The record is a 63-nucleotide RNA sequence from Perca fluviatilis, which matches "Selenocysteine insertion sequence 1" in Rfam.
From the family's description: The incorporation of selenocysteine into a protein sequence is directed by an in-frame UGA codon (usually a stop codon) within the coding region of the mRNA. Selenoprotein mRNAs contain a conserved secondary structure in the 3' UTR that is required for the distinction of UGA stop from UGA selenocysteine.
By type it is a cis-regulatory element.
[Rfam]
RNA sequence: UUGUGAUUUGAUGAAGAUCUGAAAGAUAAACCCACUUGUGGCCUUUCUGGUUUGAUGCCACAA
Numbered sequence: 001u002u003g004u005g006a007u008u009u010g011a012u013g014a015a016g017a018u019c020u021g022a023a024a025g026a027u028a029a030a031c032c033c034a035c036u037u038g039u040g041g042c043c044u045u046u047c048u049g050g051u052u053u054g055a056u057g058c059c060a061c062a063a
Stems, first nucleotide, its partner, number of pairs: 001063005016052004021047005032041003
Background: Its family is annotated with selenocysteine incorporation in the Gene Ontology. For this family Rfam cites "A novel RNA structural motif in the selenocysteine insertion element of eukaryotic selenoprotein mRNAs" (Walczak et al., RNA, 1996). The family's consensus secondary structure is taken from published work.